[Rfam]
RNA sequence: UGAAAGUCCCGGACGGCAGCCAAGAAUGAGCCAUGCUUGCAUGAGCGAAUUAUUGGAUAUCGGACGGGCUAGAGCGUAUGAGUAAGUAGGGUGAUAGCCCGGAUUACGAAUGCGGUCGGCAGCUGUGGGAGCGCUAUAGGCGCGGAACAGCUGACUUUCA
Numbered sequence: 001u002g003a004a005a006g007u008c009c010c011g012g013a014c015g016g017c018a019g020c021c022a023a024g025a026a027u028g029a030g031c032c033a034u035g036c037u038u039g040c041a042u043g044a045g046c047g048a049a050u051u052a053u054u055g056g057a058u059a060u061c062g063g064a065c066g067g068g069c070u071a072g073a074g075c076g077u078a079u080g081a082g083u084a085a086g087u088a089g090g091g092u093g094a095u096a097g098c099c100c101g102g103a104u105u106a107c108g109a110a111u112g113c114g115g116u117c118g119g120c121a122g123c124u125g126u127g128g129g130a131g132c133g134c135u136a137u138a139g140g141c142g143c144g145g146a147a148c149a150g151c152u153g154a155c156u157u158u159c160a
Stems, first nucleotide, its partner, number of pairs: 001160007008068004015061002018058001020056004025051003030046001032043004072117002075114005082107004089100004120153007131143004
The record is a 160-nucleotide RNA sequence from Ruminococcus sp. AM42-11, which matches "Clostridiales-1 RNA" in Rfam. The organism belongs to Ruminococcus, within Bacteria. The base pairs follow the family's consensus structure, which is taken from published work.